[Rfam]
RNA sequence: CUUGAUAAAGGCAAACCUAUCGCGAGGUGGGGGCGCAAAGCCACGAGUCUUUACGAUUAUUAUAAAGACAGUCGGGCUGCCAAGG
Number, nucleotide and partner (000 for none) at each position: 001c085002u000003u082004g081005a000006u000007a000008a000009a000010g000011g036012c035013a000014a000015a000016c031017c030018u029019a028020u027021c026022g000023c000024g000025a000026g021027g020028u019029g018030g017031g016032g000033g000034c071035g012036c011037a000038a000039a078040g077041c076042c075043a000044c074045g073046a072047g069048u068049c067050u066051u065052u064053a063054c000055g000056a000057u000058u000059a000060u000061u000062a000063u053064a052065a051066a050067g049068a048069c047070a000071g034072u046073c045074g044075g042076g041077c040078u039079g000080c000081c004082a003083a000084g000085g001